EcpR1: a 105-nucleotide RNA sequence from Martelella mediterranea. Rfam links the family to the GO terms regulation of translation in response to stress, mRNA binding and negative regulation of cell cycle. Rfam's curators write: Perviously named SmelC291, SmrC10, or Sra33. The family's consensus secondary structure was predicted with WAR. A search with the family's covariance model found it, with a score of 86 bits. Lineage of the source: Bacteria > Pseudomonadati > Pseudomonadota > Aurantimonadaceae > Martelella.
RNA sequence: UUGCCCCAUGAUGCUCAGGUCCGCCGCAUCUCCUGGAAUCGUGGGGUCGGUCGGCUGGCAAUAUACGGGUUUCCUCGUGCCCGCAAUUCGCCGGCCGGCCGCCUU
Numbered sequence: 001u002u003g004c005c006c007c008a009u010g011a012u013g014c015u016c017a018g019g020u021c022c023g024c025c026g027c028a029u030c031u032c033c034u035g036g037a038a039u040c041g042u043g044g045g046g047u048c049g050g051u052c053g054g055c056u057g058g059c060a061a062u063a064u065a066c067g068g069g070u071u072u073c074c075u076c077g078u079g080c081c082c083g084c085a086a087u088u089c090g091c092c093g094g095c096c097g098g099c100c101g102c103c104u105u
Base pairs, nucleotide, nucleotide: 003047004046005045006044007043008042009041010040015036016035017034018033019032049100050099051098052097053096054095055094056093057092058091059090